[Rfam]
This 166-nucleotide RNA sequence from Sporomusa acidovorans belongs to the Rfam family "Lysine riboswitch aptamer". It scores 120 bits against the family's covariance model. The family's consensus secondary structure is taken from published work. The source organism's lineage runs through Bacteria, Bacillati, Negativicutes, Selenomonadales and Sporomusa acidovorans.
RNA sequence: AUUGUUUAUAGAGGCGCAGCCAACAUGAGUACUUGUUUGAUGAGGCAUCGAUGAAGACAGGGAAAGGGUUAGCUGCCGAAGUAAAAAAGGCGGCGGUUUUUUUUACUGGGCCUGCAUUGAAUAGGUGCAGGACUGUCACCAAUGUUGGUGGAGCGCUAUCUCAUCU
Numbered sequence: 001a002u003u004g005u006u007u008a009u010a011g012a013g014g015c016g017c018a019g020c021c022a023a024c025a026u027g028a029g030u031a032c033u034u035g036u037u038u039g040a041u042g043a044g045g046c047a048u049c050g051a052u053g054a055a056g057a058c059a060g061g062g063a064a065a066g067g068g069u070u071a072g073c074u075g076c077c078g079a080a081g082u083a084a085a086a087a088a089g090g091c092g093g094c095g096g097u098u099u100u101u102u103u104u105a106c107u108g109g110g111c112c113u114g115c116a117u118u119g120a121a122u123a124g125g126u127g128c129a130g131g132a133c134u135g136u137c138a139c140c141a142a143u144g145u146u147g148g149u150g151g152a153g154c155g156c157u158a159u160c161u162c163a164u165c166u
Stems, first nucleotide, its partner, number of pairs: 008159004016076005022070003032061007080107012108134002111131008136151006
Dot-bracket structure: .......((((....(((((.(((.......(((((((................)))))))......))).)))))...((((((((((((....))))))))))))((.((((((((.....)))))))).)).((((((....))))))....)))).......